[Rfam]
RNA sequence: GGAGCAGCAAGCAAGUUGCAUCAUAGCGUUCCGACGAGGGCUUUUGAGACUUCGCUGUGGGCGUCCGCGCGCAGUGCGUCGACCACGCAGUCUCCAAUAUGCUCUUCACAAGCUAUGGGGAAAGUCUCCGUGCCAUGGGGUCGAGAGGAUCGAUGAGAAAUUCGUGGACGCCUCUCAGCUACAGUCGCCUGAUGUGUUGUGCACGUCUCCUCUGUGACAGGCUUCUUGCCUGGAGAAGAGGCAGCGCGACGGCUGGAGGUUGAUUGCAGUUGCCGCUUACAUGCGGGCUCUUCCAAGGCUUGAGUUCAUGCGACUGGUGGAACUGUCUUCCCGAGGACGUUCCGCUAACAGAAUGGAGCUUAUGUCUUCGCUGUUC
Number, nucleotide and partner (000 for none) at each position: 001g000002g376003a375004g374005c373006a372007g371008c370009a368010a367011g366012c000013a000014a315015g314016u313017u312018g311019c310020a000021u118022c117023a116024u115025a114026g113027c112028g000029u000030u000031c000032c000033g000034a000035c000036g000037a105038g104039g103040g102041c101042u000043u099044u000045u000046g000047a000048g000049a000050c000051u000052u000053c000054g000055c000056u000057g000058u000059g000060g000061g000062c000063g000064u000065c000066c000067g000068c000069g000070c000071g000072c000073a000074g000075u000076g000077c000078g000079u000080c000081g000082a000083c000084c000085a000086c000087g000088c000089a000090g000091u000092c000093u000094c000095c000096a000097a000098u000099a043100u000101g041102c040103u039104c038105u037106u000107c000108a000109c000110a000111a000112g027113c026114u025115a024116u023117g022118g021119g000120g000121a000122a361123a360124g359125u000126c358127u357128c356129c355130g000131u000132g000133c000134c000135a000136u000137g000138g000139g151140g150141u149142c148143g000144a000145g000146a000147g000148g142149a141150u140151c139152g000153a000154u000155g000156a000157g000158a000159a000160a000161u000162u000163c000164g000165u000166g000167g000168a000169c000170g000171c000172c000173u000174c000175u000176c000177a000178g000179c000180u000181a000182c000183a000184g000185u000186c000187g202188c201189c000190u199191g198192a197193u000194g000195u000196g000197u192198u191199g190200u000201g188202c187203a000204c286205g000206u000207c000208u000209c000210c000211u281212c000213u279214g278215u000216g000217a000218c000219a000220g274221g273222c272223u000224u000225c000226u000227u000228g000229c000230c000231u268232g267233g000234a265235g000236a000237a000238g000239a000240g000241g000242c000243a000244g000245c000246g000247c000248g000249a000250c000251g261252g260253c259254u258255g000256g000257a000258g254259g253260u252261u251262g000263a000264u000265u234266g000267c232268a231269g000270u000271u000272g222273c221274c220275g000276c000277u000278u214279a213280c000281a211282u000283g000284c000285g000286g204287g000288c000289u000290c000291u000292u000293c000294c000295a000296a000297g000298g000299c000300u000301u000302g000303a000304g000305u000306u000307c000308a000309u000310g019311c018312g017313a016314c015315u014316g000317g345318u344319g343320g342321a341322a340323c000324u000325g000326u000327c000328u000329u000330c000331c000332c000333g000334a000335g000336g000337a000338c000339g000340u322341u321342c320343c319344g318345c317346u000347a000348a000349c000350a000351g000352a000353a000354u000355g129356g128357a127358g126359c124360u123361u122362a000363u000364g000365u000366c011367u010368u009369c000370g008371c007372u006373g005374u004375u003376c002
RNase MRP: a 376-nucleotide RNA sequence from Toxoplasma gondii. The base pairs follow the family's consensus structure, which is taken from published work. The match comes from Rfam's covariance-model search (74 bits). The source organism's lineage runs through Eukaryota, Sar, Apicomplexa, Conoidasida and Toxoplasma gondii. For this family Rfam cites "Identification and analysis of ribonuclease P and MRP RNA in a broad range of eukaryotes" (Piccinelli et al., Nucleic Acids Res, 2005).